Burkholderia RNA 7 (anti-hemB): an 88-nucleotide RNA sequence from Acidovorax sp. A reference for the family is Weinberg et al. (2007), "Identification of 22 candidate structured RNAs in bacteria using the CMfinder comparative genomics pipeline", Nucleic Acids Res.
RNA sequence: CCCCCGCUUUUCCUCCCUGAGCGGGGCCUUGUCUUGCAGCGAUGCGAGAGGGGCUUCCCGGCCCGGCGGAUCGCCGGGCUUUUUUUGU
Numbered sequence: 001c002c003c004c005c006g007c008u009u010u011u012c013c014u015c016c017c018u019g020a021g022c023g024g025g026g027c028c029u030u031g032u033c034u035u036g037c038a039g040c041g042a043u044g045c046g047a048g049a050g051g052g053g054c055u056u057c058c059c060g061g062c063c064c065g066g067c068g069g070a071u072c073g074c075c076g077g078g079c080u081u082u083u084u085u086u087g088u
Base pairs, nucleotide, nucleotide: 003025004024005023006022007021008020027052028051029050030049032048061079062078063077064076065075066074067073068072
The family's consensus secondary structure is taken from published work. This RNA motif was identified by computational search in b-proteobacteria Burkholderia. Its family is annotated with protein binding and bacterial biofilm matrix in the Gene Ontology.